[Rfam]
Annotation
This 124-nucleotide sequence from Trifolium pratense belongs to the Rfam family "U5 spliceosomal RNA". The organism belongs to Trifolium, within Eukaryota. Rfam describes the family as follows. U5 RNA is a component of both types of known spliceosome.
Nucleotides: 124
Base pairs, nucleotide, nucleotide: 003079004078005077006076008069009068010067013066014065016063018061019060020059029055030054031053032052034050035049036048101124105123106122107121109119
Number, partner (000 for none) and nucleotide at each position: 001000a002000g003079c004078c005077g006076u007000g008069u009068g010067g011000g012000a013066u014065g015000a016063u017000c018061a019060c020059a021000u022000a023000g024000c025000g026000a027000a028000c029055u030054a031053u032052u033000a034050u035049u036048u037000u038000g039000c040000c041000u042000u043000u044000u045000a046000c047000u048036a049035a050034a051000g052032a053031a054030u055029a056000c057000c058000g059020u060019g061018u062000u063016a064000g065014c066013a067010u068009c069008a070000u071000a072000a073000u074000u075000a076006g077005c078004g079003g080000c081000a082000u083000a084000u085000g086000c087000u088000a089000g090000u091000u092000a093000g094000u095000u096000u097000u098000u099000g100000g101124a102000a103000g104000a105123g106122u107121u108000c109119u110000c111000u112000u113000u114000a115000u116000a117000g118000a119109g120000u121107a122106a123105c124101u
Rfam classes the family as a spliceosomal small nuclear RNA. A search with the family's covariance model found it, with a score of 62 bits.